RNA sequence: UAUCCCUACGGAAUUUCUCAGGUCCGCCGCAUCUCCUGAUCCGUGGGGUACAGCUGGUCAGGAUUUGAACUCAGGUGGCCUCCUCGUAGUUCUUUUCUGACCAGCUUUUUU
Dot-bracket structure: ..((((((((.......(((((............)))))..))))))).).(((((((((((.................................))))))))))).....
Numbered sequence: 001u002a003u004c005c006c007u008a009c010g011g012a013a014u015u016u017c018u019c020a021g022g023u024c025c026g027c028c029g030c031a032u033c034u035c036c037u038g039a040u041c042c043g044u045g046g047g048g049u050a051c052a053g054c055u056g057g058u059c060a061g062g063a064u065u066u067g068a069a070c071u072c073a074g075g076u077g078g079c080c081u082c083c084u085c086g087u088a089g090u091u092c093u094u095u096u097c098u099g100a101c102c103a104g105c106u107u108u109u110u111u
Stems, first nucleotide, its partner, number of pairs: 003050001004048007018039005052106011
This 111-nucleotide RNA sequence belongs to the Rfam family "EcpR1". It scores 74 bits against the family's covariance model. From the family's description: Perviously named SmelC291, SmrC10, or Sra33. Pairs were carried over by alignment from the consensus structure, which was predicted with WAR. By type it is a small RNA. For this family Rfam cites "Deep sequencing uncovers numerous small RNAs on all four replicons of the plant pathogen Agrobacterium tumefaciens" (Wilms et al., RNA Biol, 2012). Its family is annotated with mRNA binding, negative regulation of cell cycle and regulation of translation in response to stress in the Gene Ontology.